Overview: Rfam assigns this 64-nucleotide RNA from Nostocales cyanobacterium LEGE 11386 to the family "Fluoride riboswitch aptamer (crcB RNA motif)". The family's consensus secondary structure is taken from published work. Gene Ontology terms of the family: response to fluoride and positive regulation of gene expression. Lineage of the source: Bacteria > Bacillati > Cyanobacteriota > Cyanophyceae > Nostocales.
[Rfam]
RNA sequence: AUUAUUAAUGGCGAUGGAGCUCGCCAAAACCGCCGUUUUUCAGGCUGAUGGCUCCUACUUUUCC
Numbered sequence: 001a002u003u004a005u006u007a008a009u010g011g012c013g014a015u016g017g018a019g020c021u022c023g024c025c026a027a028a029a030c031c032g033c034c035g036u037u038u039u040u041c042a043g044g045c046u047g048a049u050g051g052c053u054c055c056u057a058c059u060u061u062u063c064c
Stems, first nucleotide, its partner, number of pairs: 010025004016055006032045003
It scores 58 bits against the family's covariance model.